About this RNA: Shown here is a 135-nucleotide RNA from Pantoea agglomerans, a member of the family "Yersinia sRNA 155(RyfD)". The sRNA was identified by and is confirmed to have a stable secondary structure by using genome-wide structure probing at different temperatures. The function is unknown. It scores 91 bits against the family's covariance model. The literature on the family includes a 2016 paper in Proc Natl Acad Sci U S A by Righetti et al., "Temperature-responsive in vitro RNA structurome of Yersinia pseudotuberculosis". The base pairs follow the family's consensus structure. Lineage of the source: Bacteria > Gammaproteobacteria > Enterobacterales > Erwiniaceae > Pantoea.
[Rfam]
RNA sequence: UAAGACGGUCCAGUUAGCGUAUUUUUUACUCAAAUCUCAGGUCAUUAACCUUGAAAUUUUGAGGGAUGACCUCAUUUAAUCUCCAGUAGCAUUUUGACCUGUAAUGGGAGGAAUUAUGCGUCUGGAUCGUCUUAC
Numbered sequence: 001u002a003a004g005a006c007g008g009u010c011c012a013g014u015u016a017g018c019g020u021a022u023u024u025u026u027u028a029c030u031c032a033a034a035u036c037u038c039a040g041g042u043c044a045u046u047a048a049c050c051u052u053g054a055a056a057u058u059u060u061g062a063g064g065g066a067u068g069a070c071c072u073c074a075u076u077u078a079a080u081c082u083c084c085a086g087u088a089g090c091a092u093u094u095u096g097a098c099c100u101g102u103a104a105u106g107g108g109a110g111g112a113a114u115u116a117u118g119c120g121u122c123u124g125g126a127u128c129g130u131c132u133u134a135c
Stems, first nucleotide, its partner, number of pairs: 002133011017119003021115001023113001024040002049064006065076004080111005086105002